RNA sequence: UUCUUCAGGGGAAAAAUGAUACGUUCGUUUUUUUCCCUAGACACAAAACGAACGUAUCAUUUUUCCCCUGAAGAA
Numbered sequence: 001u002u003c004u005u006c007a008g009g010g011g012a013a014a015a016a017u018g019a020u021a022c023g024u025u026c027g028u029u030u031u032u033u034u035c036c037c038u039a040g041a042c043a044c045a046a047a048a049c050g051a052a053c054g055u056a057u058c059a060u061u062u063u064u065c066c067c068c069u070g071a072a073g074a075a
Base pairs, nucleotide, nucleotide: 003073004072005071006070007069009067010066011065013063014062017059018058019057020056021055024052025051026050027049028048029047
Annotation
The family of this 75-nucleotide RNA from Aedes aegypti is "mir-965 microRNA precursor family". The base pairs follow the family's consensus structure, which was predicted with RNAalifold. The organism belongs to Stegomyia, within Eukaryota.